[Rfam]
RNA sequence: CGCGGUCCGCGCGACUGGCGAUAGGGGCCCUGCCCCCGAGGUGGAAGACCACCGGGAAGCGCGGGCCACGGCCCCUCGCGCCGCGGCAUCCGCCGUUCGCCUGGGCAGCCCUC
Dot-bracket structure: ...(((((((((..(([[[[[...................((((....))))..))..)))))))))......................(.(((..]]]]]..))).).....
RNA: ZMP/ZTP riboswitch aptamer (pfl RNA motif)